[Rfam]
RNA: tRNA
Organism: Marinisporobacter balticus
RNA sequence: GCGGGCAUAGCUUAAUGGUAGAGUCCUGGCUUCCCAAGCCAGUUGUGCGGGUUCGAUUCCCGUUGCCCGCU
Numbered sequence: 001g002c003g004g005g006c007a008u009a010g011c012u013u014a015a016u017g018g019u020a021g022a023g024u025c026c027u028g029g030c031u032u033c034c035c036a037a038g039c040c041a042g043u044u045g046u047g048c049g050g051g052u053u054c055g056a057u058u059c060c061c062g063u064u065g066c067c068c069g070c071u
Base pairs, nucleotide, nucleotide: 001070002069003068004067005066006065007064010024011023012022013021026042027041028040029039030038047063048062049061050060051059